[Rfam]
RNA: U1A polyadenylation inhibition element (PIE)
Organism: Ameiurus melas
RNA sequence: UUGAAAAGCAUUGCACCCAGGGUCUGGUCACCCAGACAUUGUACCUGGAGCUUUCCUGCUUAAAUAAAAAUCAAAA
Number, nucleotide and partner (000 for none) at each position: 001u000002u000003g000004a000005a054006a053007a052008g051009c050010a000011u000012u000013g000014c000015a000016c000017c048018c047019a046020g045021g000022g037023u036024c035025u034026g033027g000028u000029c000030a000031c000032c000033c026034a025035g024036a023037c022038a000039u000040u000041g000042u000043a000044c000045c020046u019047g018048g017049a000050g009051c008052u007053u006054u005055c000056c000057u000058g000059c000060u000061u000062a000063a000064a000065u000066a000067a000068a000069a000070a000071u000072c000073a000074a000075a000076a000